[Rfam]
RNA sequence: UGCUGUCGAUGACAGCCACCAAUGUUUCCAGUAUCGGGAUGAUACGAGUGAUCUGUAAGAAACUCCUUCGGGUGGUCAUACUGCCAAAGUCAUAGGAAUGGAGCGUGGUCUGAGACUGACGCCUUCGGGCGACCACACGAUACUUUUGCCUGAAAGGAAGAGAGCGUGAUUAAGAAGCGCGGUAAAUCU
Dot-bracket structure: .((((((...)))))).......[[[[[...................((((((.....]]]]].((....)).))))))......................[[.((((((.....]]...(((....)))))))))....[...((((((........]....(((...........)))))))))...
Numbered sequence: 001u002g003c004u005g006u007c008g009a010u011g012a013c014a015g016c017c018a019c020c021a022a023u024g025u026u027u028c029c030a031g032u033a034u035c036g037g038g039a040u041g042a043u044a045c046g047a048g049u050g051a052u053c054u055g056u057a058a059g060a061a062a063c064u065c066c067u068u069c070g071g072g073u074g075g076u077c078a079u080a081c082u083g084c085c086a087a088a089g090u091c092a093u094a095g096g097a098a099u100g101g102a103g104c105g106u107g108g109u110c111u112g113a114g115a116c117u118g119a120c121g122c123c124u125u126c127g128g129g130c131g132a133c134c135a136c137a138c139g140a141u142a143c144u145u146u147u148g149c150c151u152g153a154a155a156g157g158a159a160g161a162g163a164g165c166g167u168g169a170u171u172a173a174g175a176a177g178c179g180c181g182g183u184a185a186a187u188c189u
Stems, first nucleotide, its partner, number of pairs: 002016006024063005048079006065072002102117002105136006121130003141159001145186006164180003
Source information: Shown here is a 189-nucleotide RNA from Candidatus Symbiopectobacterium sp. Dall1.0, a member of the family "STAXI RNA". Rfam 15.1 lists 130 matches to the family in 68 species. The family's RNA type in Rfam is small RNA. The organism belongs to Symbiopectobacterium, within Bacteria. It scores 56 bits against the family's covariance model. The base pairs follow the family's consensus structure, which is taken from published work.